Mammalian CPEB3 ribozyme: an 83-nucleotide RNA sequence from Alligator mississippiensis.
RNA sequence: AAGGAGGAUAUGGGGGCCCUAGCAGAAAAAUUCAUGUCGUGACCCCUGUCAGGUAAUACCUGGCAAUACCUGUGAAUUCUGCU
Numbered sequence: 001a002a003g004g005a006g007g008a009u010a011u012g013g014g015g016g017c018c019c020u021a022g023c024a025g026a027a028a029a030a031u032u033c034a035u036g037u038c039g040u041g042a043c044c045c046c047u048g049u050c051a052g053g054u055a056a057u058a059c060c061u062g063g064c065a066a067u068a069c070c071u072g073u074g075a076a077u078u079c080u081g082c083u
Stems, first nucleotide, its partner, number of pairs: 013046004018041001021083007028040001050072006
Taxonomically the source falls in Alligator (Eukaryota, Opisthokonta, Sauria, Alligatorinae).